[Rfam]
RNA sequence: GCAUCACAGGUCUGUGGCUGAAAGUCGAUGGCAGUCGCAGCCAAAACGAUCCACGUAACGCAGUCAAAAGGGCUGCUGAGCAUGGUGCGGUUUAGAAGUAAGUCCCUGCCGGGGAAAACCGAGAGAGUGAGUUGUGAGAAGGCAAGCGCCGGGUAGCUAAAGCUCCAGCAGGCGAGUGUGGGGGUCAAAAGCCAGGUCAGCUGUAGAUGC
Number, nucleotide and partner (000 for none) at each position: 001g210002c209003a208004u207005c206006a000007c203008a202009g201010g000011u000012c200013u199014g198015u194016g193017g192018c191019u190020g000021a000022a000023a000024g000025u000026c000027g000028a179029u178030g177031g041032c000033a092034g091035u090036c089037g088038c087039a086040g000041c031042c000043a000044a000045a000046a000047c000048g000049a000050u085051c084052c000053a000054c000055g000056u000057a000058a077059c000060g000061c000062a000063g000064u071065c000066a000067a000068a000069a000070g000071g064072g000073c000074u000075g000076c000077u058078g000079a000080g000081c000082a000083u187084g051085g050086u039087g038088c037089g036090g035091u034092u033093u000094a000095g000096a000097a000098g000099u000100a000101a000102g000103u000104c172105c000106c171107u170108g169109c168110c121111g120112g119113g000114g000115a000116a000117a000118a000119c112120c111121g110122a000123g000124a000125g165126a164127g163128u162129g000130a000131g000132u000133u000134g157135u156136g000137a000138g000139a000140a000141g150142g149143c148144a000145a000146g000147c000148g143149c142150c141151g000152g000153g000154u000155a000156g135157c134158u000159a000160a000161a000162g128163c127164u126165c125166c000167a000168g109169c108170a107171g106172g104173c000174g000175a000176g000177u030178g029179u028180g000181g000182g000183g000184g000185u000186c000187a083188a000189a000190a019191g018192c017193c016194a015195g000196g000197u000198c014199a013200g012201c009202u008203g007204u000205a000206g005207a004208u003209g002210c001
A member of the RNA family "raiA RNA", 210 nucleotides long.
The base pairs follow the family's consensus structure, which is taken from published work.